[Rfam]
RNA sequence: UCCUCGUAUCUCCUUCUGAUUCAUUCAUGUCUUAGCGGGUCGUAAAGGAUGCUAAAUAAAUAUGUAUUCUUUUUUCAUUAAUUGUUAAACAAUAAAUUUGAUUAUCAAUUAAUAAAGAAUGCUACAUUA
Numbered sequence: 001u002c003c004u005c006g007u008a009u010c011u012c013c014u015u016c017u018g019a020u021u022c023a024u025u026c027a028u029g030u031c032u033u034a035g036c037g038g039g040u041c042g043u044a045a046a047g048g049a050u051g052c053u054a055a056a057u058a059a060a061u062a063u064g065u066a067u068u069c070u071u072u073u074u075u076c077a078u079u080a081a082u083u084g085u086u087a088a089a090c091a092a093u094a095a096a097u098u099u100g101a102u103u104a105u106c107a108a109u110u111a112a113u114a115a116a117g118a119a120u121g122c123u124a125c126a127u128u129a
Base pairs, nucleotide, nucleotide: 002048003047004046007044008043009042012039013038014037016035017034018033019032022029023028071119072118073117074116075115079111080110081109082108083107084106087103088102090100091099092098
Tetrahymena snoRNA TtnuHACA18: a 129-nucleotide sequence from Tetrahymena elliotti. For this family Rfam cites "Experimental identification and analysis of macronuclear non-coding RNAs from the ciliate Tetrahymena thermophila" (Andersen and Nielsen, Nucleic Acids Res, 2012). The family's consensus secondary structure was predicted with mfold. It is annotated as an H/ACA-box small nucleolar RNA. It is one of the family's seed sequences. Its family is annotated with RNA processing and nucleolus in the Gene Ontology.